[Rfam]
RNA sequence: CUCUUAUUAAGAGUAGCUGAGGGACUGGCCCGAUGAAGCUCGGCAACCAGCAUUUGCGAAGGACGCAUUUGCACGGUGCUAAAUCCUACAAAACGAAUUCGUUUUGAAAGAUAAGAG
Numbered sequence: 001c002u003c004u005u006a007u008u009a010a011g012a013g014u015a016g017c018u019g020a021g022g023g024a025c026u027g028g029c030c031c032g033a034u035g036a037a038g039c040u041c042g043g044c045a046a047c048c049a050g051c052a053u054u055u056g057c058g059a060a061g062g063a064c065g066c067a068u069u070u071g072c073a074c075g076g077u078g079c080u081a082a083a084u085c086c087u088a089c090a091a092a093a094c095g096a097a098u099u100c101g102u103u104u105u106g107a108a109a110g111a112u113a114a115g116a117g
Base pairs, nucleotide, nucleotide: 001117002116003115004114005113006112007111008110013041015040016039017038021031022030023029027086028085042080043079044078045077047076048075050072051071052070084109089106090105091104092103093102094101